Shown here is a 71-nucleotide sequence from Prochlorococcus marinus, a member of the family "Cyano-1 RNA". The sequence is in the family's curated seed alignment. The base pairs follow the family's consensus structure, which is taken from published work.

RNA sequence: UAUAUUGUGAGGAGUUGAGAUUUAGCGAAGGAGUCGAAACUAGGAAAGACUUCCUAAGCCAAUCUCAAAUA
Numbered sequence: 001u002a003u004a005u006u007g008u009g010a011g012g013a014g015u016u017g018a019g020a021u022u023u024a025g026c027g028a029a030g031g032a033g034u035c036g037a038a039a040c041u042a043g044g045a046a047a048g049a050c051u052u053c054c055u056a057a058g059c060c061a062a063u064c065u066c067a068a069a070u071a
Stems, first nucleotide, its partner, number of pairs: 015067001017066005025059002030054003033050003